[Rfam]
Nucleotides: 097
Base pairs, nucleotide, nucleotide: 002017003016004015005014006013034058035057036056037055038054039053040052041051042050043049044048061093062092063089064088065087066086067085068084069083070082071081072080073079
Number, partner (000 for none) and nucleotide at each position: 001000a002017u003016c004015g005014a006013c007000a008000u009000g010000g011000a012000u013006g014005u015004c016003g017002g018000a019000a020000g021000a022000g023000c024000u025000u026000u027000a028000a029000a030000u031000a032000u033000g034058c035057g036056a037055g038054u039053u040052u041051a042050u043049g044048c045000a046000u047000c048044g049043c050042a051041u052040a053039a054038a055037c056036u057035c058034g059000a060000a061093g062092a063089a064088a065087g066086a067085a068084u069083u070082g071081u072080a073079c074000a075000g076000g077000c078000a079073g080072u081071a082070c083069a084068a085067u086066u087065c088064u089063u090000u091000c092062u093061c094000a095000c096000c097000u
A member of the RNA family "TD-2 RNA" from Treponema maltophilum, 97 nucleotides long.
Rfam classes the family as a small RNA.
The match comes from Rfam's covariance-model search (53 bits).
NCBI's taxonomy places the organism under Bacteria, Pseudomonadati, Spirochaetia, Treponematales, Treponema maltophilum.